Record summary
Rfam assigns this 87-nucleotide sequence from Triticum aestivum to the family "MIR1120/MIR1122 microRNA precursor family". A reference for the family is Yao et al. (2007), "Cloning and characterization of microRNAs from wheat (Triticum aestivum L.)", Genome Biol. It scores 90 bits against the family's covariance model.
RNA sequence: GUACUCCCUCCGUUCCAUAAUGUAAGACAUUUUUUAACACUAUGCUAGUGUCAAAAAAUGUCCUAUAUUAUGGGACGGAGGGAGUAU
Numbered sequence: 001g002u003a004c005u006c007c008c009u010c011c012g013u014u015c016c017a018u019a020a021u022g023u024a025a026g027a028c029a030u031u032u033u034u035u036a037a038c039a040c041u042a043u044g045c046u047a048g049u050g051u052c053a054a055a056a057a058a059u060g061u062c063c064u065a066u067a068u069u070a071u072g073g074g075a076c077g078g079a080g081g082g083a084g085u086a087u
Stems, first nucleotide, its partner, number of pairs: 003085003007081005013075005019069006026062010037051005